RNA: mir-544 microRNA precursor family
Organism: Mustela putorius
RNA sequence: AUUACCCAGAGACCUUGUUAAAAGGCAGACUUUGCUACAGUAGUUCUUGGGGUUGCCUAAGACUCUGCAUUUCUAGGAAGCUUCCAGGUGAUGCCAC
Numbered sequence: 001a002u003u004a005c006c007c008a009g010a011g012a013c014c015u016u017g018u019u020a021a022a023a024g025g026c027a028g029a030c031u032u033u034g035c036u037a038c039a040g041u042a043g044u045u046c047u048u049g050g051g052g053u054u055g056c057c058u059a060a061g062a063c064u065c066u067g068c069a070u071u072u073c074u075a076g077g078a079a080g081c082u083u084c085c086a087g088g089u090g091a092u093g094c095c096a097c
Stems, first nucleotide, its partner, number of pairs: 003090003009084003014080003018076003021072003025068005031062003